[Rfam]
RNA sequence: AGCCUGUGAUGUUUUUAUUGUAAGAGUAGUGGACAGAAGCGAUUUCUGAGAACUCCGUGCUGAGGCU
Numbered sequence: 001a002g003c004c005u006g007u008g009a010u011g012u013u014u015u016u017a018u019u020g021u022a023a024g025a026g027u028a029g030u031g032g033a034c035a036g037a038a039g040c041g042a043u044u045u046c047u048g049a050g051a052a053c054u055c056c057g058u059g060c061u062g063a064g065g066c067u
Base pairs, nucleotide, nucleotide: 001067002066003065004064
Source information
Rfam assigns this 67-nucleotide sequence from Struthio camelus to the family "Small nucleolar RNA SNORD75". The family's RNA type in Rfam is C/D-box small nucleolar RNA. The family has 5 seed sequences and 767 matches in Rfam 15.1.